[Rfam]
RNA sequence: GAGGGCAGGGGAAGCAUGGCCACGCAGCGAACACACAGGGAGCUUGCUCCCAGAUAUGCUGCGGGGAAAGUCCCCGUGCCUUUGGGCAGAGAGUGCCACUGGGAGACCAGAAGACCUUGGCAUUGGAGCUGACAGCGAAACUUUUGUGGAGUUGUGGUUCUGGGUCUUGGUCCUUUGCAUCAGCAAAGUCAUGCCAUGAGCGGUCGCAAGAACGCCAACUGAACGGGGCUCACUCUCUCCAUGCCCU
Numbered sequence: 001g002a003g004g005g006c007a008g009g010g011g012a013a014g015c016a017u018g019g020c021c022a023c024g025c026a027g028c029g030a031a032c033a034c035a036c037a038g039g040g041a042g043c044u045u046g047c048u049c050c051c052a053g054a055u056a057u058g059c060u061g062c063g064g065g066g067a068a069a070g071u072c073c074c075c076g077u078g079c080c081u082u083u084g085g086g087c088a089g090a091g092a093g094u095g096c097c098a099c100u101g102g103g104a105g106a107c108c109a110g111a112a113g114a115c116c117u118u119g120g121c122a123u124u125g126g127a128g129c130u131g132a133c134a135g136c137g138a139a140a141c142u143u144u145u146g147u148g149g150a151g152u153u154g155u156g157g158u159u160c161u162g163g164g165u166c167u168u169g170g171u172c173c174u175u176u177g178c179a180u181c182a183g184c185a186a187a188g189u190c191a192u193g194c195c196a197u198g199a200g201c202g203g204u205c206g207c208a209a210g211a212a213c214g215c216c217a218a219c220u221g222a223a224c225g226g227g228g229c230u231c232a233c234u235c236u237c238u239c240c241a242u243g244c245c246c247u
Stems, first nucleotide, its partner, number of pairs: 002247005008240005015198006023064001024062006038051005069230002072228004085097004099110004112171001119166003123162001126160004130154004140147002200215003204211002
Overview
Rfam assigns this 247-nucleotide sequence from Cladocopium goreaui to the family "RNase MRP". Pairs were carried over by alignment from the consensus structure, which is taken from published work. Rfam classes the family as a ribozyme. Taxonomically the source falls in Cladocopium (Eukaryota, Dinophyceae, Suessiales, Symbiodiniaceae).